[Rfam]
Rfam assigns this 74-nucleotide RNA sequence from Polypterus senegalus to the family "Small nucleolar RNA SNORD59". The base pairs follow the family's consensus structure, which was predicted with ILM. It scores 70 bits against the family's covariance model. The organism belongs to Polypterus, within Eukaryota. It is annotated as a C/D-box small nucleolar RNA.
RNA sequence: UUCCCAUGAUGAUUCACAUCACAUGACUUUCGUUCUUCUGAGUCUGCUGAAGCCAAACGUCUGUUCUGAGUGGA
Numbered sequence: 001u002u003c004c005c006a007u008g009a010u011g012a013u014u015c016a017c018a019u020c021a022c023a024u025g026a027c028u029u030u031c032g033u034u035c036u037u038c039u040g041a042g043u044c045u046g047c048u049g050a051a052g053c054c055a056a057a058c059g060u061c062u063g064u065u066c067u068g069a070g071u072g073g074a
Base pairs, nucleotide, nucleotide: 001074002073003072004070